[Rfam]
Nucleotides: 359
Stems, first nucleotide, its partner, number of pairs: 001355010012324007020049006027042005054342003058339005063229004070261004075225005080094005095109001096107004110220002115218002117214003132159002134155003139152005167185006186209001187207005192201003233281004243272006252266005288307008
Number, partner (000 for none) and nucleotide at each position: 001355g002354g003353a004352g005351u006350u007349g008348g009347c010346c011000a012324g013323a014322c015321a016320g017319c018318c019000g020049c021048u022047g023046c024045c025044c026000a027042g028041c029040c030039a031038c032000g033000u034000u035000c036000g037000c038031g039030u040029g041028g042027c043000c044025g045024g046023g047022u048021g049020g050000a051000g052000g053000a054342a055341a056340g057000u058339c059338c060337g061336g062335g063229c064228u065227c066226c067000g068000c069000a070261g071260g072259g073258c074000a075225g076224g077223g078222u079221g080094c081093c082092a083091g084090g085000u086000a087000a088000c089000g090084c091083c092082u093081g094080g095109g096107c097106g098105g099104c100000g101000u102000g103000a104099g105098c106097c107096g108000a109095u110220g111219g112000a113000a114000a115218g116217c117214g118213c119212c120000a121000c122000a123000g124000a125000a126000a127000a128000u129000a130000u131000a132159c133158c134155g135154c136153c137000g138000a139152a140151g141150u142149c143148c144000g145000c146000a147000a148143g149142g150141a151140c152139u153136g154135g155134u156000a157000a158133g159132g160000g161000u162000g163000a164000a165000a166000u167185g168184g169183u170182g171181c172180g173000g174000u175000a176000a177000g178000a179000g180172c181171g182170c183169a184168c185167c186209g187207c188206g189205c190204g191203g192201g193200u194199g195000g196000c197000a198000a199194c200193a201192u202000c203191c204190c205189g206188u207187g208000g209186c210000a211000g212119g213118g214117c215000a216000a217116g218115c219111c220110c221079c222078a223077c224076c225075c226066g227065g228064a229063g230000u231000a232000a233281g234280g235279c236278c237000a238000a239000a240000u241000a242000g243272g244271g245270g246269a247268a248267c249000g250000a251000u252266a253265g254264u255263g256262c257000u258073g259072c260071c261070c262256g263255c264254a265253c266252u267248g268247u269246u270245c271244c272243c273000g274000g275000g276000u277000a278236g279235g280234c281233c282000g283000c284000a285000u286000g287000a288307g289306g290305c291304g292303u293302c294301u295300g296000g297000c298000g299000a300295c301294a302293g303292g304291c305290g306289u307288c308000c309000c310000a311000g312000a313000u314000g315000a316000a317000u318018g319017g320016c321015u322014g323013u324012c325000c326000a327000c328000g329000a330000c331000a332000g333000a334000a335062c336061c337060c338059g339058g340056c341055u342054u343000a344000c345000c346010g347009g348008c349007c350006a351005a352004c353003u354002c355001c356000u357000u358000u359000u
Source information:
This 359-nucleotide sequence from Sulfuricaulis limicola belongs to the Rfam family "Bacterial RNase P class A".